[Rfam]
RNA sequence: CCCCUUGCACAGCCCCCGCCGCGCGCCUAGAUUAGCGUUGUUCCUUCGGGAACUAUGGCGAUAAACGCGCCCGUAAUAAGCGGAUCGGACCCGGGGGCGGUACCCGGCGGCUCCACCAAACAUCCCUCAUUUGGGGAUCAUGGGGCCGAAACAGGAUCGACGGACGUCUAAAGGGGUUAGCUUUCGCUCGGUGAGGAACCACCGUUAUCGGUCCGACAAAGCUAGUUGCAAAUGACAACAAAGCUCCGAUGGCUCUGGCUGCUUAAGCAGUUCGAUCUAUCGAAAUCUAAGCCCUUGCGCCUAGCAGCGUAAGGCGGGGUUCGCAGGCACCUGGCAACAGAAGCCUGCACU
Numbered sequence: 001c002c003c004c005u006u007g008c009a010c011a012g013c014c015c016c017c018g019c020c021g022c023g024c025g026c027c028u029a030g031a032u033u034a035g036c037g038u039u040g041u042u043c044c045u046u047c048g049g050g051a052a053c054u055a056u057g058g059c060g061a062u063a064a065a066c067g068c069g070c071c072c073g074u075a076a077u078a079a080g081c082g083g084a085u086c087g088g089a090c091c092c093g094g095g096g097g098c099g100g101u102a103c104c105c106g107g108c109g110g111c112u113c114c115a116c117c118a119a120a121c122a123u124c125c126c127u128c129a130u131u132u133g134g135g136g137a138u139c140a141u142g143g144g145g146c147c148g149a150a151a152c153a154g155g156a157u158c159g160a161c162g163g164a165c166g167u168c169u170a171a172a173g174g175g176g177u178u179a180g181c182u183u184u185c186g187c188u189c190g191g192u193g194a195g196g197a198a199c200c201a202c203c204g205u206u207a208u209c210g211g212u213c214c215g216a217c218a219a220a221g222c223u224a225g226u227u228g229c230a231a232a233u234g235a236c237a238a239c240a241a242a243g244c245u246c247c248g249a250u251g252g253c254u255c256u257g258g259c260u261g262c263u264u265a266a267g268c269a270g271u272u273c274g275a276u277c278u279a280u281c282g283a284a285a286u287c288u289a290a291g292c293c294c295u296u297g298c299g300c301c302u303a304g305c306a307g308c309g310u311a312a313g314g315c316g317g318g319g320u321u322c323g324c325a326g327g328c329a330c331c332u333g334g335c336a337a338c339a340g341a342a343g344c345c346u347g348c349a350c351u
Stems, first nucleotide, its partner, number of pairs: 040053005057188005067181002069177004081166002085163003091107005108148007189204004195214002198212003317332004323348006
The record is a 351-nucleotide sequence from Actibacterium naphthalenivorans, which matches "Alphaproteobacteria transfer-messenger RNA" in Rfam. Rfam classes the family as a non-coding RNA gene. The organism belongs to Actibacterium, within Bacteria. For this family Rfam cites "Probing the structure of the Escherichia coli 10Sa RNA (tmRNA)" (Felden et al., RNA, 1997).